[Rfam]
RNA sequence: UUCUUAUGAAGAGAGGUGGAGGGACUGGCCCUUUGAAGCCUCGGCAGCAGACUUAAAAAAGUACUGUGCCAAUUCCAGCAGGCAUUUGCCUGGGAGAUAAGAA
Numbered sequence: 001u002u003c004u005u006a007u008g009a010a011g012a013g014a015g016g017u018g019g020a021g022g023g024a025c026u027g028g029c030c031c032u033u034u035g036a037a038g039c040c041u042c043g044g045c046a047g048c049a050g051a052c053u054u055a056a057a058a059a060a061g062u063a064c065u066g067u068g069c070c071a072a073u074u075c076c077a078g079c080a081g082g083c084a085u086u087u088g089c090c091u092g093g094g095a096g097a098u099a100a101g102a103a
Stems, first nucleotide, its partner, number of pairs: 001103007013042005021031003025078004043070004048066002051062004074095001079092005